Alpha operon ribosome binding site: a 106-nucleotide RNA sequence from Alteromonas mediterranea.
A reference for the family is Schlax et al. (2001), "Translational repression of the Escherichia coli alpha operon mRNA: importance of an mRNA conformational switch and a ternary entrapment complex", J Biol Chem.
Taxonomically the source falls in Alteromonas (Bacteria, Gammaproteobacteria, Alteromonadales, Alteromonadaceae).
Its family is annotated with ribosome binding in the Gene Ontology.
By type it is a cis-regulatory element.
Rfam describes the family as follows. The bacterial alpha operon ribosome binding site is surrounded by this complex pseudoknotted structure. Translation of the mRNA produces 4 ribosomal protein products, one of which (S4) acts as a translational repressor by binding to the nested pseudoknot region.

RNA sequence: CAAUUUAGUCGACGGAUAAGUAUCCUAUCGGGCUUUUUAGGUCGUCGACAAAUAAACAAGAGGAGUGCUGUUAAUGGCCCGUAUCGCUGGCAUUAACAUUCCUGAG
Numbered sequence: 001c002a003a004u005u006u007a008g009u010c011g012a013c014g015g016a017u018a019a020g021u022a023u024c025c026u027a028u029c030g031g032g033c034u035u036u037u038u039a040g041g042u043c044g045u046c047g048a049c050a051a052a053u054a055a056a057c058a059a060g061a062g063g064a065g066u067g068c069u070g071u072u073a074a075u076g077g078c079c080c081g082u083a084u085c086g087c088u089g090g091c092a093u094u095a096a097c098a099u100u101c102c103u104g105a106g
Base pairs, nucleotide, nucleotide: 005052006051008049009048010047011046012045013044024090025089029081030080031079032078037105038104039103
Dot-bracket structure: ....((.((((((..........[[...[[[[....{{{....)))))).)).........................]]]].......]]............}}}.